A member of the RNA family "Small nucleolar RNA U6-53/MBII-28" from Trichechus manatus, 105 nucleotides long.
By type it is a C/D-box small nucleolar RNA.

[Rfam]
RNA sequence: CCCCUGUGAUGAGUUGCCAUGCUAAUACUGAGACACCAGGGGGCUUUACCCAGCAUUGGGUGUUAUUGAGGUAAAUUCUACUUCUCUUAAAUCUACCUGAGGGGC
Numbered sequence: 001c002c003c004c005u006g007u008g009a010u011g012a013g014u015u016g017c018c019a020u021g022c023u024a025a026u027a028c029u030g031a032g033a034c035a036c037c038a039g040g041g042g043g044c045u046u047u048a049c050c051c052a053g054c055a056u057u058g059g060g061u062g063u064u065a066u067u068g069a070g071g072u073a074a075a076u077u078c079u080a081c082u083u084c085u086c087u088u089a090a091a092u093c094u095a096c097c098u099g100a101g102g103g104g105c
Stems, first nucleotide, its partner, number of pairs: 001104004041051003